[Rfam]
RNA sequence: GUACAUGUGGUGUCACCAAGCAGGAUGAGGAGCUGUGAUGCUGUAAACAGUUUCUGAUGUG
Number, nucleotide and partner (000 for none) at each position: 001g000002u061003a060004c059005a058006u000007g000008u000009g000010g000011u000012g053013u000014c000015a051016c050017c000018a000019a000020g000021c043022a042023g041024g000025a039026u038027g000028a000029g000030g000031a000032g000033c000034u000035g000036u000037g000038a026039u025040g000041c023042u022043g021044u000045a000046a000047a000048c000049a000050g016051u015052u000053u012054c000055u000056g000057a000058u005059g004060u003061g002
RNA: Small nucleolar RNA Z39